[Rfam]
RNA sequence: GGGGCUAUAGCUCAGUUGGUAGAGCACUUGCAUGGCAUGCAAGGGGUCAGCGGUUCGAAUCCGCUUAGCUCCA
Dot-bracket structure: (((((((..((((........)))).(((((.......))))).....(((((.......)))))))))))).
Numbered sequence: 001g002g003g004g005c006u007a008u009a010g011c012u013c014a015g016u017u018g019g020u021a022g023a024g025c026a027c028u029u030g031c032a033u034g035g036c037a038u039g040c041a042a043g044g045g046g047u048c049a050g051c052g053g054u055u056c057g058a059a060u061c062c063g064c065u066u067a068g069c070u071c072c073a
Stems, first nucleotide, its partner, number of pairs: 001072007010025004027043005049065005
tRNA: a 73-nucleotide RNA sequence from Leptolyngbya sp. BL0902. NCBI's taxonomy places the organism under Bacteria, Bacillati, Leptolyngbyales, Leptolyngbyaceae, Leptolyngbya. Pairs were carried over by alignment from the consensus structure, which is taken from published work. About the family: Transfer RNA (tRNA) molecules are approximately 80 nucleotides in length.